Small nucleolar RNA SNORD121A: an 84-nucleotide RNA from Geotrypetes seraphini. A reference for the family is Yang et al. (2006), "snoSeeker: an advanced computational package for screening of guide and orphan snoRNA genes in the human genome", Nucleic Acids Res. NCBI's taxonomy places the organism under Eukaryota, Eumetazoa, Teleostomi, Sarcopterygii, Geotrypetes. It scores 69 bits against the family's covariance model.
[Rfam]
RNA sequence: GUCCAGAAGACACUGACGUGAUCUUUUCCAAGCACAUAGCUGAUUUCCCCAUAAGGAAACAUGGUUUUCUGAGUUUUUCUGGAU
Numbered sequence: 001g002u003c004c005a006g007a008a009g010a011c012a013c014u015g016a017c018g019u020g021a022u023c024u025u026u027u028c029c030a031a032g033c034a035c036a037u038a039g040c041u042g043a044u045u046u047c048c049c050c051a052u053a054a055g056g057a058a059a060c061a062u063g064g065u066u067u068u069c070u071g072a073g074u075u076u077u078u079c080u081g082g083a084u
Base pairs, nucleotide, nucleotide: 001084002083003082004081005080006079008077009076010075011073